[Rfam]
The record is an 80-nucleotide sequence from Nannospalax galili, which matches "Small nucleolar RNA SNORD115" in Rfam. On this family, see Cavaille et al., Proc Natl Acad Sci U S A 2000: "Identification of brain-specific and imprinted small nucleolar RNA genes exhibiting an unusual genomic organization". Rfam classes the family as a C/D-box small nucleolar RNA. The base pairs follow the family's consensus structure, which was predicted with PFOLD.
RNA sequence: GGGUCAGUGAUGACAUCCAUAAUGUCAGGAAGAGAGGUGAUGACAUAAAAAUCAUGCUCAAUAUGAUUACGCUGAAGCCC
Numbered sequence: 001g002g003g004u005c006a007g008u009g010a011u012g013a014c015a016u017c018c019a020u021a022a023u024g025u026c027a028g029g030a031a032g033a034g035a036g037g038u039g040a041u042g043a044c045a046u047a048a049a050a051a052u053c054a055u056g057c058u059c060a061a062u063a064u065g066a067u068u069a070c071g072c073u074g075a076a077g078c079c080c
Base pairs, nucleotide, nucleotide: 001080002079003078004077005074006073008071009070
Dot-bracket structure: ((((((.((............................................................)).))..))))
The source organism's lineage runs through Eukaryota, Chordata, Gnathostomata, Myomorpha and Nannospalax.